[Rfam]
A member of the RNA family "Small nucleolar RNA SNORA23" from Callorhinchus milii, 179 nucleotides long.
Rfam links the family to the GO terms RNA processing and nucleolus.
A reference for the family is Huttenhofer et al. (2001), "RNomics: an experimental approach that identifies 201 candidates for novel, small, non-messenger RNAs in mouse", EMBO J.
Lineage of the source: Eukaryota > Opisthokonta > Bilateria > Deuterostomia > Callorhinchus.
Rfam's curators write: The members of this family belong to the H/ACA class of snoRNAs which are thought to guide the sites of modification of uridines to pseudouridines. This family includes human snoRNA ACA23 (SNORA23) and mouse snoMBI-1. ACA23 is predicted to guide the pseudouridylation of residue U3737 and U4331 of 28S rRNA.
A search with the family's covariance model found it, with a score of 122 bits.
RNA sequence: UAGGCACUGUGUGCAUAGCAUCCAUCUAUGUUUAGUGCUGUUUUCCAACUGUGUUUUACAGCUGGAUUGCAGUGCUCACACAAGACCCGUUGGCCACAGAGAAACAUGAGAUCAUAGUACUGGCCUAGUAGUGUCAUAAAAUGUUAAUUGCUGGCCAGCCUCCAAAUUCUCAAACAAUG
Numbered sequence: 001u002a003g004g005c006a007c008u009g010u011g012u013g014c015a016u017a018g019c020a021u022c023c024a025u026c027u028a029u030g031u032u033u034a035g036u037g038c039u040g041u042u043u044u045c046c047a048a049c050u051g052u053g054u055u056u057u058a059c060a061g062c063u064g065g066a067u068u069g070c071a072g073u074g075c076u077c078a079c080a081c082a083a084g085a086c087c088c089g090u091u092g093g094c095c096a097c098a099g100a101g102a103a104a105c106a107u108g109a110g111a112u113c114a115u116a117g118u119a120c121u122g123g124c125c126u127a128g129u130a131g132u133g134u135c136a137u138a139a140a141a142u143g144u145u146a147a148u149u150g151c152u153g154g155c156c157a158g159c160c161u162c163c164a165a166a167u168u169c170u171c172a173a174a175c176a177a178u179g
Stems, first nucleotide, its partner, number of pairs: 013091001015090002029082003033078001035076001036074006044066004050060003107172005120158006127152004132143003